[Rfam]
RNA sequence: AGCCACUGAUGAAAUUUGAUUCUGCCAAAUGAAUUACUGUGAUUACAAUUCCGUUCCUUUUUUCUCUGAGGUU
Numbered sequence: 001a002g003c004c005a006c007u008g009a010u011g012a013a014a015u016u017u018g019a020u021u022c023u024g025c026c027a028a029a030u031g032a033a034u035u036a037c038u039g040u041g042a043u044u045a046c047a048a049u050u051c052c053g054u055u056c057c058u059u060u061u062u063u064c065u066c067u068g069a070g071g072u073u
Base pairs, nucleotide, nucleotide: 001073002072003071004070
Notes:
The record is a 73-nucleotide RNA sequence from Nipponia nippon, which matches "Small nucleolar RNA SNORD47" in Rfam. The match comes from Rfam's covariance-model search (60 bits). It is annotated as a C/D-box small nucleolar RNA. The family has 20 seed sequences and 755 matches in Rfam 15.1. The family's consensus secondary structure was predicted with ILM. The source organism's lineage runs through Eukaryota, Chordata, Teleostomi, Coelurosauria and Nipponia.